[Rfam]
T-box leader: a 213-nucleotide RNA sequence from Mesobacillus campisalis. By type it is a cis-regulatory leader. The source organism's lineage runs through Bacteria, Bacillati, Bacilli, Caryophanales and Mesobacillus. Uncharged tRNA acts as the effector for transcription antitermination of genes in the T-box leader family. A search with the family's covariance model found it, with a score of 129 bits.
Nucleotides: 213
Stems, first nucleotide, its partner, number of pairs: 007107002015102004028089003032085001041079003054076006110126006128137003153169007174210004185206005
Number, partner (000 for none) and nucleotide at each position: 001000u002000g003000a004000a005000a006000a007107g008106c009000g010000a011000u012000g013000a014000c015102a016101g017100g018099a019000a020000a021000u022000c023000c024000a025000g026000u027000a028089g029088u030087g031000c032085u033000u034000a035000u036000c037000u038000c039000c040000c041079u042078g043077u044000u045000c046000a047000a048000a049000a050000g051000a052000g053000a054076g055075u056074c057073g058072g059071u060000g061000g062000c063000c064000g065000g066000u067000g068000c069000g070000a071059a072058c073057c074056g075055a076054u077043a078042c079041a080000a081000a082000g083000a084000u085032a086000a087030c088029a089028c090000g091000a092000a093000a094000u095000a096000c097000a098000u099018u100017c101016c102015u103000u104000g105000a106008g107007c108000u109000g110126u111125c112124u113123u114122u115121g116000a117000u118000a119000a120000a121115c122114a123113a124112a125111g126110a127000a128137c129136g130135g131000g132000c133000g134000a135130c136129c137128g138000u139000u140000a141000a142000a143000u144000c145000g146000u147000u148000g149000a150000g151000c152000g153169g154168a155167a156166g157165g158164a159163a160000u161000u162000u163159u164158u165157c166156c167155u168154u169153c170000a171000a172000u173000a174210a175209g176208g177207g178000u179000g180000g181000u182000a183000c184000c185206g186205c187204g188203u189202g190000a191000a192000a193000u194000a195000g196000u197000c198000a199000a200000a201000c202189c203188a204187c205186g206185u207177c208176c209175c210174u211000u212000u213000u